[Rfam]
RNA sequence: CCUGCCGAAGUUUCCCUCAGGAUAGCAGAAACUCAUAUCAGAUUUAUGUGGUAAAGCGAAUGAUUAGAGGCCUUGGGGUUGAAACAACCUUAACCUAUUCUCAAACUUUAAAUAUGUAAGAACGAGGCGUCUCUUGAUUGGACCCCUCGGCGAUUGAGAGUUUCUAGUGGGCCAUUUUUGGUAAGCAGAACUGGCGAUGCGGGAUGAACCGAACGCGAGGUUAAGGUGCCGGAAUUCACGCUCAUCAGACACCACAAAAGGUGUUAGUUCAUCUAGACAGCAGGACGGUGGCCAUGGAAGUCGGAAUCCGCUAAGGAGUGUGUAACAACUCACCUGCCGAAUGAACUAGCCCUGAAAAUGGAUGGCGCUUAAGCGUGAUACCCAUACCUCGCCGUUAACGUUAAAGUGACGCGUUAACGAGUAGGCAGGCGUGGAGGUCCGUGAAGAAGCCUUGGCAGUGAUGCUGGGUGAAACGGCCUCUAGUGCAGAU
Numbered sequence: 001c002c003u004g005c006c007g008a009a010g011u012u013u014c015c016c017u018c019a020g021g022a023u024a025g026c027a028g029a030a031a032c033u034c035a036u037a038u039c040a041g042a043u044u045u046a047u048g049u050g051g052u053a054a055a056g057c058g059a060a061u062g063a064u065u066a067g068a069g070g071c072c073u074u075g076g077g078g079u080u081g082a083a084a085c086a087a088c089c090u091u092a093a094c095c096u097a098u099u100c101u102c103a104a105a106c107u108u109u110a111a112a113u114a115u116g117u118a119a120g121a122a123c124g125a126g127g128c129g130u131c132u133c134u135u136g137a138u139u140g141g142a143c144c145c146c147u148c149g150g151c152g153a154u155u156g157a158g159a160g161u162u163u164c165u166a167g168u169g170g171g172c173c174a175u176u177u178u179u180g181g182u183a184a185g186c187a188g189a190a191c192u193g194g195c196g197a198u199g200c201g202g203g204a205u206g207a208a209c210c211g212a213a214c215g216c217g218a219g220g221u222u223a224a225g226g227u228g229c230c231g232g233a234a235u236u237c238a239c240g241c242u243c244a245u246c247a248g249a250c251a252c253c254a255c256a257a258a259a260g261g262u263g264u265u266a267g268u269u270c271a272u273c274u275a276g277a278c279a280g281c282a283g284g285a286c287g288g289u290g291g292c293c294a295u296g297g298a299a300g301u302c303g304g305a306a307u308c309c310g311c312u313a314a315g316g317a318g319u320g321u322g323u324a325a326c327a328a329c330u331c332a333c334c335u336g337c338c339g340a341a342u343g344a345a346c347u348a349g350c351c352c353u354g355a356a357a358a359u360g361g362a363u364g365g366c367g368c369u370u371a372a373g374c375g376u377g378a379u380a381c382c383c384a385u386a387c388c389u390c391g392c393c394g395u396u397a398a399c400g401u402u403a404a405a406g407u408g409a410c411g412c413g414u415u416a417a418c419g420a421g422u423a424g425g426c427a428g429g430c431g432u433g434g435a436g437g438u439c440c441g442u443g444a445a446g447a448a449g450c451c452u453u454g455g456c457a458g459u460g461a462u463g464c465u466g467g468g469u470g471a472a473a474c475g476g477c478c479u480c481u482a483g484u485g486c487a488g489a490u
Stems, first nucleotide, its partner, number of pairs: 001429006011024001013022003027165007043120007054109001055107002061103003066098001068096003073093006080086001123149005129143003171195004176190005200211003215392005221386001225382003234379001236378001239375003259353003263350010280337005286310003292304002311315001316331001320329002393419009430485001432482008441474002449469002455464003

Notes:
The record is a 490-nucleotide part of an RNA from Mycena chlorophos, which matches "Eukaryotic large subunit ribosomal RNA" in Rfam. Its family is annotated with ribosome and structural constituent of ribosome in the Gene Ontology.